A member of the RNA family "EcpR1" from Ensifer fredii, 111 nucleotides long. It scores 99 bits against the family's covariance model. It is annotated as a small RNA. Its family is annotated with negative regulation of cell cycle, regulation of translation in response to stress and mRNA binding in the Gene Ontology. The organism belongs to Ensifer fredii, within Bacteria. Pairs were carried over by alignment from the consensus structure, which was predicted with WAR. About the family: Perviously named SmelC291, SmrC10, or Sra33. According to its overproduction phenotype it was renamed Elongated Cell Phenotype RNA1. Induced by stress,EcpR1 negatively regulates cell cycle master regulatory genes dnaA and gcrA at post-transcriptional level by base pairing between its strongly conserved GC-rich loop and the target mRNAs. It's regulation is hfq-independent but requires RNase E to regulate dnaA.

RNA sequence: UUACCCCAUGAUGCUCAGGUCCGCCGCAUCUCCUGGGUCGUGGGGUCGGUCGGCUGGAUUCCGACGUCCGCGGAUUCCUCGUGCCGCAGUCGGAGCCCAGCCGACCCCCUU
Numbered sequence: 001u002u003a004c005c006c007c008a009u010g011a012u013g014c015u016c017a018g019g020u021c022c023g024c025c026g027c028a029u030c031u032c033c034u035g036g037g038u039c040g041u042g043g044g045g046u047c048g049g050u051c052g053g054c055u056g057g058a059u060u061c062c063g064a065c066g067u068c069c070g071c072g073g074a075u076u077c078c079u080c081g082u083g084c085c086g087c088a089g090u091c092g093g094a095g096c097c098c099a100g101c102c103g104a105c106c107c108c109c110u111u
Stems, first nucleotide, its partner, number of pairs: 003046008014037006048106010